RNA sequence: CCCACGGCUCACGCCGUGGGCUGGGCAUCUUGCGCCGCUCCGCGGCU
Numbered sequence: 001c002c003c004a005c006g007g008c009u010c011a012c013g014c015c016g017u018g019g020g021c022u023g024g025g026c027a028u029c030u031u032g033c034g035c036c037g038c039u040c041c042g043c044g045g046c047u
Base pairs, nucleotide, nucleotide: 001020002019003018004017005016006015007014008013034046035045036044037043038042
Acido-Lenti-1 RNA: a 47-nucleotide sequence from Anatilimnocola aggregata. The family's consensus secondary structure is taken from published work. The family's RNA type in Rfam is small RNA. The organism belongs to Anatilimnocola, within Bacteria.